The family of this 133-nucleotide sequence from Octodon degus is "Small nucleolar RNA SNORA33". Rfam describes the family as follows. ACA33 is a member of the H/ACA class of snoRNA that guide the sites of modification of uridines to pseudouridines. The family has 28 seed sequences and 1,176 matches in Rfam 15.1. It scores 90 bits against the family's covariance model.

RNA sequence: AAACCAGCUGUUGAAUUUGCCUAUCUAUUUGUGUUUCUGCAGAAAUUUAGAAAAAGCUGGCAAUAACAAUGCUGUCACAUUAUGAACUUUAAAAAUAUCAAAGUCAUUAAAGCCCUUGACCAUGGUUACAAAU
Dot-bracket structure: ...((((........(((((..................))))).............)))).............((((.........((((((..((......))..))))))..........)))).......